[Rfam]
RNA: RNase MRP
RNA sequence: GGGUGAUGGGAAGUGUAAUACUCGCAGUGACGCACCGGUUUCACCAAUGACCGCAUUUGUUCGAAUGAAGUAAUGGCUGUGAGCGAAAGUCCCUGAACCUGAGGCUGAAAGAGCUCCAUCCGUAGUUGGGUGUACUCGGAAAUCCAACCUGGAUGGCGUUUGGGCCAGGAAACCAUGUGGUUGAGCCUAGGAUUGCCAUCGGUUGACCUCCGGGGUUCGUUGCAAGCAAAGUGACGUUACACAGUCGAACAGCACAGGGCUUACUCUCCCCUUAUC
Numbered sequence: 001g002g003g004u005g006a007u008g009g010g011a012a013g014u015g016u017a018a019u020a021c022u023c024g025c026a027g028u029g030a031c032g033c034a035c036c037g038g039u040u041u042c043a044c045c046a047a048u049g050a051c052c053g054c055a056u057u058u059g060u061u062c063g064a065a066u067g068a069a070g071u072a073a074u075g076g077c078u079g080u081g082a083g084c085g086a087a088a089g090u091c092c093c094u095g096a097a098c099c100u101g102a103g104g105c106u107g108a109a110a111g112a113g114c115u116c117c118a119u120c121c122g123u124a125g126u127u128g129g130g131u132g133u134a135c136u137c138g139g140a141a142a143u144c145c146a147a148c149c150u151g152g153a154u155g156g157c158g159u160u161u162g163g164g165c166c167a168g169g170a171a172a173c174c175a176u177g178u179g180g181u182u183g184a185g186c187c188u189a190g191g192a193u194u195g196c197c198a199u200c201g202g203u204u205g206a207c208c209u210c211c212g213g214g215g216u217u218c219g220u221u222g223c224a225a226g227c228a229a230a231g232u233g234a235c236g237u238u239a240c241a242c243a244g245u246c247g248a249a250c251a252g253c254a255c256a257g258g259g260c261u262u263a264c265u266c267u268c269c270c271c272u273u274a275u276c
Stems, first nucleotide, its partner, number of pairs: 002276005008270004014241006022083001023081006043066001087262003091259004103115004117132005135214003145205005154198004162188004172181003